Rfam assigns this 120-nucleotide RNA from Jatropha curcas to the family "MIR398 microRNA precursor family". A search with the family's covariance model found it, with a score of 82 bits. On this family, see Jones-Rhoades and Bartel, Mol Cell 2004: "Computational identification of plant microRNAs and their targets, including a stress-induced miRNA".
RNA sequence: AGGAUUCCUACAGGAGCGACCUGAGAUCACAUGUGGACACCCUCACAUAUAACCCUUAUCUUCCAGUGGUUUAUAAUUCUGUGUUCCUAUGUGUUCUCAGGUCGCCCCUGCCGGGCUUUC
Numbered sequence: 001a002g003g004a005u006u007c008c009u010a011c012a013g014g015a016g017c018g019a020c021c022u023g024a025g026a027u028c029a030c031a032u033g034u035g036g037a038c039a040c041c042c043u044c045a046c047a048u049a050u051a052a053c054c055c056u057u058a059u060c061u062u063c064c065a066g067u068g069g070u071u072u073a074u075a076a077u078u079c080u081g082u083g084u085u086c087c088u089a090u091g092u093g094u095u096c097u098c099a100g101g102u103c104g105c106c107c108c109u110g111c112c113g114g115g116c117u118u119u120c
Stems, first nucleotide, its partner, number of pairs: 007114002011110004016105004023098004028093005